Shown here is a 94-nucleotide RNA from Acetivibrio clariflavus, a member of the family "c-di-GMP-I riboswitch aptamer". The family's consensus secondary structure is taken from published work. The family is grouped with related families in Rfam's "c-di-GMP_I riboswitch clan". Lineage of the source: Bacteria > Bacillati > Bacillota > Acetivibrio > Acetivibrio clariflavus.
RNA sequence: UAUGAAACAGGGCAAAAUUGCCGAAAGGCAAUGACGCAAAGCCUUGGGUCUAAAGCUUGGGUUUAUCCGAAGCUAAGAUAGCUCGGCUGCCAUU
Number, nucleotide and partner (000 for none) at each position: 001u000002a000003u000004g000005a000006a000007a000008c000009a000010g000011g000012g037013c036014a000015a000016a000017a032018u031019u030020g029021c028022c027023g000024a000025a000026a000027g022028g021029c020030a019031a018032u017033g000034a000035c000036g013037c012038a000039a000040a088041g087042c086043c085044u000045u000046g083047g082048g079049u078050c077051u000052a000053a000054a000055g073056c072057u071058u070059g000060g000061g000062u000063u000064u000065a000066u000067c000068c000069g000070a058071a057072g056073c055074u000075a000076a000077g050078a049079u048080a000081g000082c047083u046084c000085g043086g042087c041088u040089g000090c000091c000092a000093u000094u000